[Rfam]
RNA: Bacterial RNase P class B
RNA sequence: AAUCUCGGGUAAUCGCGGUCGGCAAAGGUCGGCUGAGGAAAGUCCAUGCUCGCACAAGCUGCGAUGCUUGUAGUGUUCGUGCUCGGUGAAAAAAUAAGCCGGGGGACUUCGCAAGAAGUUACGGCGGAGAAACGCGCUAAGGUUUCGGCUAUGCGUUAAUACUCCUGAAAGUGCCACAGCGACGAUGACGUAUUCGGAAACGGGUACGGUGGAACGUUGGUAAACCCCUCGAGCGGGCAACCCAAACUACGGUAGGGGCGCUUCACUUCUGGAAAUGAACUAAAAGUGGGGGGAGAGUUUUUACUCUCGAGAUAGAUGAUUACCGCUUACUUAAACUGUCCCUGACAUUUAGGUAAGUACGGAACAUGGCUUAUAGAG
Numbered sequence: 001a002a003u004c005u006c007g008g009g010u011a012a013u014c015g016c017g018g019u020c021g022g023c024a025a026a027g028g029u030c031g032g033c034u035g036a037g038g039a040a041a042g043u044c045c046a047u048g049c050u051c052g053c054a055c056a057a058g059c060u061g062c063g064a065u066g067c068u069u070g071u072a073g074u075g076u077u078c079g080u081g082c083u084c085g086g087u088g089a090a091a092a093a094a095u096a097a098g099c100c101g102g103g104g105g106a107c108u109u110c111g112c113a114a115g116a117a118g119u120u121a122c123g124g125c126g127g128a129g130a131a132a133c134g135c136g137c138u139a140a141g142g143u144u145u146c147g148g149c150u151a152u153g154c155g156u157u158a159a160u161a162c163u164c165c166u167g168a169a170a171g172u173g174c175c176a177c178a179g180c181g182a183c184g185a186u187g188a189c190g191u192a193u194u195c196g197g198a199a200a201c202g203g204g205u206a207c208g209g210u211g212g213a214a215c216g217u218u219g220g221u222a223a224a225c226c227c228c229u230c231g232a233g234c235g236g237g238c239a240a241c242c243c244a245a246a247c248u249a250c251g252g253u254a255g256g257g258g259c260g261c262u263u264c265a266c267u268u269c270u271g272g273a274a275a276u277g278a279a280c281u282a283a284a285a286g287u288g289g290g291g292g293g294a295g296a297g298u299u300u301u302u303a304c305u306c307u308c309g310a311g312a313u314a315g316a317u318g319a320u321u322a323c324c325g326c327u328u329a330c331u332u333a334a335a336c337u338g339u340c341c342c343u344g345a346c347a348u349u350u351a352g353g354u355a356a357g358u359a360c361g362g363a364a365c366a367u368g369g370c371u372u373a374u375a376g377a378g
Base pairs, nucleotide, nucleotide: 004378005377006376007374008324009323010322011321012320013319014318016035017034018033019032020031021030040372041371042370044369045368046367047366048365049237050236051235052234053233054071055070056069057068058067059066077232078231079230081228082103083102084101085100086099087098104122105120106119107118108117109116110115123227124226126165127164128163129162134156135155136154137153141150142149143148171225172224173221174220175219189208190207191206192205193204194203195202196201241257242256243255261291262290263289264288265287266286267285293308294307295306296305297304326357327356328355329354330353331352332351333350334349